[Rfam]
RNA sequence: GCUGAGUUGGGUAGCUCCAGCUUGUAACCCAAGUGGGGGCAUCAAAGCGGUGGAACAUGGCUUAGGAUUUGUCAGGUUGGGCUAGUGGUUGCACCUUGCCGGCCUGCCCACUCCAAGUUGAGAGUUGGCCAAUGGGACCUAAGCGAAAGCUUGAGUCUCCUUGGUUCUAGACUAGAGGGCACUGCGUGAGGCUGGUUUCACAGAGCAGCGAACACCUCUGGCUCUUGACAGUGGAGGGAUAACAGGCUGCAGCAGUUCUAGCUCACAUUGCCUGACAAGCCUAGUCACUUGAACCACCACUUUU
Numbered sequence: 001g002c003u004g005a006g007u008u009g010g011g012u013a014g015c016u017c018c019a020g021c022u023u024g025u026a027a028c029c030c031a032a033g034u035g036g037g038g039g040c041a042u043c044a045a046a047g048c049g050g051u052g053g054a055a056c057a058u059g060g061c062u063u064a065g066g067a068u069u070u071g072u073c074a075g076g077u078u079g080g081g082c083u084a085g086u087g088g089u090u091g092c093a094c095c096u097u098g099c100c101g102g103c104c105u106g107c108c109c110a111c112u113c114c115a116a117g118u119u120g121a122g123a124g125u126u127g128g129c130c131a132a133u134g135g136g137a138c139c140u141a142a143g144c145g146a147a148a149g150c151u152u153g154a155g156u157c158u159c160c161u162u163g164g165u166u167c168u169a170g171a172c173u174a175g176a177g178g179g180c181a182c183u184g185c186g187u188g189a190g191g192c193u194g195g196u197u198u199c200a201c202a203g204a205g206c207a208g209c210g211a212a213c214a215c216c217u218c219u220g221g222c223u224c225u226u227g228a229c230a231g232u233g234g235a236g237g238g239a240u241a242a243c244a245g246g247c248u249g250c251a252g253c254a255g256u257u258c259u260a261g262c263u264c265a266c267a268u269u270g271c272c273u274g275a276c277a278a279g280c281c282u283a284g285u286c287a288c289u290u291g292a293a294c295c296a297c298c299a300c301u302u303u304u
Stems, first nucleotide, its partner, number of pairs: 001040003004023008028037003044303004049298005056291002060286001062284005069278009079264007087256001089255003100249007108238002111236005117229009127166006134159005140153005173220006183212001185210003192203003
RNA: Plant signal recognition particle RNA
Organism: Trifolium subterraneum